[Rfam]
The record is a 119-nucleotide RNA sequence from Clostridium grantii, which matches "Ribosomal protein L20 leader" in Rfam. Gene Ontology term of the family: regulation of gene expression. Rfam describes the family as follows. This family is a putative r-protein leader autoregulatory structure found in B. subtilis and other low-GC Gram-positive bacteria. It is located in the 5' untranslated regions of mRNAs encoding initiation factor 3 followed by ribosomal proteins L35 and L20 (infC-rpmI-rplT). It scores 60 bits against the family's covariance model. The base pairs follow the family's consensus structure, which was predicted with CMfinder.
RNA sequence: AGAAUCAAGAAGAAACAGAGCUGUUUCUCACCUUACAGCAUUGCUAGUGAGGUUGCAUGUAUGGAUUUAAUUAACCAUGUUAUGUAUGGAACGGCUUACGUCGUUCCUUUUUUAUUUAU
Numbered sequence: 001a002g003a004a005u006c007a008a009g010a011a012g013a014a015a016c017a018g019a020g021c022u023g024u025u026u027c028u029c030a031c032c033u034u035a036c037a038g039c040a041u042u043g044c045u046a047g048u049g050a051g052g053u054u055g056c057a058u059g060u061a062u063g064g065a066u067u068u069a070a071u072u073a074a075c076c077a078u079g080u081u082a083u084g085u086a087u088g089g090a091a092c093g094g095c096u097u098a099c100g101u102c103g104u105u106c107c108u109u110u111u112u113u114a115u116u117u118a119u
Base pairs, nucleotide, nucleotide: 011028012027013026014025015024016023030053031052032051035048036047038044039043089106090105091104092103093102094101095100